[Rfam]
RNA: FMN riboswitch aptamer (RFN element)
RNA sequence: GCUUGUUCUCAGGGCGGGGCGAAUUCCCCACCGGCGGUAAAUCAGCUUAACGCUGAAAGCCCAUGAGCGCUUCGGGAGCAAUCCUGAAGGACAGCAGACCCGGUGUGAUUAUGGGGCCGACGGUUAGAGUCCAGAUGGGAGAAAGUAACG
Numbered sequence: 001g002c003u004u005g006u007u008c009u010c011a012g013g014g015c016g017g018g019g020c021g022a023a024u025u026c027c028c029c030a031c032c033g034g035c036g037g038u039a040a041a042u043c044a045g046c047u048u049a050a051c052g053c054u055g056a057a058a059g060c061c062c063a064u065g066a067g068c069g070c071u072u073c074g075g076g077a078g079c080a081a082u083c084c085u086g087a088a089g090g091a092c093a094g095c096a097g098a099c100c101c102g103g104u105g106u107g108a109u110u111a112u113g114g115g116g117c118c119g120a121c122g123g124u125u126a127g128a129g130u131c132c133a134g135a136u137g138g139g140a141g142a143a144a145g146u147a148a149c150g
Base pairs, nucleotide, nucleotide: 003148004147005146006145007144009142010141017028018027019026030130031129032119033118034064036062037061059117060116067095068094099115100114101113102112122132123131